The family of this 84-nucleotide RNA sequence from Tieghemostelium lacteum is "tRNA".
[Rfam]
RNA sequence: UCCAAGGUAGCAUAAUUGGCAGUGCGUGUAUCUCGUAAUUUUACAUGAUAAUACACGAUCCAGGUUCAAACCCUGGCCUUGGAA
Numbered sequence: 001u002c003c004a005a006g007g008u009a010g011c012a013u014a015a016u017u018g019g020c021a022g023u024g025c026g027u028g029u030a031u032c033u034c035g036u037a038a039u040u041u042u043a044c045a046u047g048a049u050a051a052u053a054c055a056c057g058a059u060c061c062a063g064g065u066u067c068a069a070a071c072c073c074u075g076g077c078c079u080u081g082g083a084a
Base pairs, nucleotide, nucleotide: 001083002082003081004080005079006078007077010025011024012023013022027055028054029053030052031051060076061075062074063073064072
The source organism's lineage runs through Eukaryota, Amoebozoa, Eumycetozoa, Dictyostelia and Tieghemostelium.